A member of the RNA family "COG3860 RNA" from Shimia abyssi, 54 nucleotides long. Taxonomically the source falls in Shimia (Bacteria, Pseudomonadati, Pseudomonadota, Roseobacteraceae). By type it is a cis-regulatory element. A search with the family's covariance model found it, with a score of 63 bits. The family's consensus secondary structure is taken from published work.
RNA sequence: CGGUCCGCAGUUCACCGAGGCGCCGCCGGUCAUUUGACCACGCUAAACCUGUUU
Numbered sequence: 001c002g003g004u005c006c007g008c009a010g011u012u013c014a015c016c017g018a019g020g021c022g023c024c025g026c027c028g029g030u031c032a033u034u035u036g037a038c039c040a041c042g043c044u045a046a047a048c049c050u051g052u053u054u
Base pairs, nucleotide, nucleotide: 001017002016003015004014028039029038030037031036